Rfam assigns this 66-nucleotide RNA sequence from Salvelinus namaycush to the family "mir-155 microRNA precursor family". The base pairs follow the family's consensus structure, which was predicted with RNAalifold.

RNA sequence: AGGUUAAUGCUAAUCGUGAUAGGGGUUCUGUUUAUAAAAAGACACCUAGCAUGUCAGCAUUAUCCC
Numbered sequence: 001a002g003g004u005u006a007a008u009g010c011u012a013a014u015c016g017u018g019a020u021a022g023g024g025g026u027u028c029u030g031u032u033u034a035u036a037a038a039a040a041g042a043c044a045c046c047u048a049g050c051a052u053g054u055c056a057g058c059a060u061u062a063u064c065c066c
Stems, first nucleotide, its partner, number of pairs: 005062007013054002020048004025043003
The family has 25 seed sequences and 647 matches in Rfam 15.1. NCBI's taxonomy places the organism under Eukaryota, Deuterostomia, Craniata, Protacanthopterygii, Salvelinus.